[Rfam]
Shown here is a 303-nucleotide RNA from Solanum commersonii, a member of the family "Plant signal recognition particle RNA". The match comes from Rfam's covariance-model search (261 bits). The base pairs follow the family's consensus structure, which is taken from published work. NCBI's taxonomy places the organism under Eukaryota, Streptophyta, Euphyllophyta, eudicotyledons, Solanum. Gene Ontology terms of the family: SRP-dependent cotranslational protein targeting to membrane, signal sequence recognition and signal recognition particle, endoplasmic reticulum targeting.

RNA sequence: GCCGAGCUCAGUAAUGUGAGCUUGUAACCCAAAUGGGGGCUUUAAUGUGGUGGAAUGUUGGGCUGUCCCAGAUGGUUGGGCUUAGUAGGCAAAUUUCUAGCUUGCCCUAUCCAAGCUCAGAGUUGGAUCACGUGGCCCAAUUGAAGAAUUUGGGCUGCUUGGUUCCUAAAGUGGGGUGGACCGCGUGAGGCUGGUUUCACAGAGCAACGAACAGCCCCGCUCUGUGCAGUGGAAGGAUAACGAGCUGGUGCUCUCUAAGUCCAGUAACGCCUGAUGGGCUGCUCCAAUUAAACCACCACUUUU
Numbered sequence: 001g002c003c004g005a006g007c008u009c010a011g012u013a014a015u016g017u018g019a020g021c022u023u024g025u026a027a028c029c030c031a032a033a034u035g036g037g038g039g040c041u042u043u044a045a046u047g048u049g050g051u052g053g054a055a056u057g058u059u060g061g062g063c064u065g066u067c068c069c070a071g072a073u074g075g076u077u078g079g080g081c082u083u084a085g086u087a088g089g090c091a092a093a094u095u096u097c098u099a100g101c102u103u104g105c106c107c108u109a110u111c112c113a114a115g116c117u118c119a120g121a122g123u124u125g126g127a128u129c130a131c132g133u134g135g136c137c138c139a140a141u142u143g144a145a146g147a148a149u150u151u152g153g154g155c156u157g158c159u160u161g162g163u164u165c166c167u168a169a170a171g172u173g174g175g176g177u178g179g180a181c182c183g184c185g186u187g188a189g190g191c192u193g194g195u196u197u198c199a200c201a202g203a204g205c206a207a208c209g210a211a212c213a214g215c216c217c218c219g220c221u222c223u224g225u226g227c228a229g230u231g232g233a234a235g236g237a238u239a240a241c242g243a244g245c246u247g248g249u250g251c252u253c254u255c256u257a258a259g260u261c262c263a264g265u266a267a268c269g270c271c272u273g274a275u276g277g278g279c280u281g282c283u284c285c286a287a288u289u290a291a292a293c294c295a296c297c298a299c300u301u302u303u
Stems, first nucleotide, its partner, number of pairs: 001040003004023007028037003044302002047299007056290002058287003061283003065279002068277003074271003078262008088252002092249001097248008106236002110233004115227002118224006125165006132158008140149003166171001173218005184209003191202003